[Rfam]
RNA: Small nucleolar RNA SNORD90
RNA sequence: GACUAAUUCCUUUUAUGUGUCUUAUGAUGAAGCUUCAUAGGGCAGAUUCUGAGAUGAGAAAUAAAAUUCUCUCCACUGAUACUCUCUGUAUGCCAUCUGAAGACACUACAUAAUGC
Numbered sequence: 001g002a003c004u005a006a007u008u009c010c011u012u013u014u015a016u017g018u019g020u021c022u023u024a025u026g027a028u029g030a031a032g033c034u035u036c037a038u039a040g041g042g043c044a045g046a047u048u049c050u051g052a053g054a055u056g057a058g059a060a061a062u063a064a065a066a067u068u069c070u071c072u073c074c075a076c077u078g079a080u081a082c083u084c085u086c087u088g089u090a091u092g093c094c095a096u097c098u099g100a101a102g103a104c105a106c107u108a109c110a111u112a113a114u115g116c
Stems, first nucleotide, its partner, number of pairs: 014108002017106006032096001036092003040085003045080001048079002051076001053074001056071003